The family of this 123-nucleotide RNA sequence is "MIR408 microRNA precursor family".
Pairs were carried over by alignment from the consensus structure, which was predicted with WAR.
Gene Ontology terms of the family: RISC complex and miRNA-mediated post-transcriptional gene silencing.
On this family, see Sunkar and Zhu, Plant Cell 2004: "Novel and stress-regulated microRNAs and other small RNAs from Arabidopsis".
Nucleotides: 123
Stems, first nucleotide, its partner, number of pairs: 017106003021102007029094001031092004036087006046077001
Number, partner (000 for none) and nucleotide at each position: 001000a002000g003000u004000u005000a006000a007000u008000g009000a010000c011000a012000g013000g014000a015000c016000a017106a018105a019104g020000a021102c022101a023100g024099g025098g026097a027096a028000c029094a030000u031092g032091c033090a034089g035000a036087g037086c038085a039084u040083g041082g042000a043000u044000g045000a046077a047000a048000c049000u050000a051000u052000c053000g054000a055000c056000a057000g058000u059000g060000a061000a062000g063000g064000a065000a066000a067000c068000u069000g070000u071000u072000g073000u074000g075000g076000c077046u078000c079000c080000a081000c082041u083040c084039a085038u086037g087036c088000a089034c090033u091032g092031c093000c094029u095000c096027u097026u098025c099024c100023c101022u102021g103000g104019c105018u106017u107000a108000u109000a110000a111000u112000c113000u114000g115000u116000u117000u118000u119000u120000a121000u122000u123000a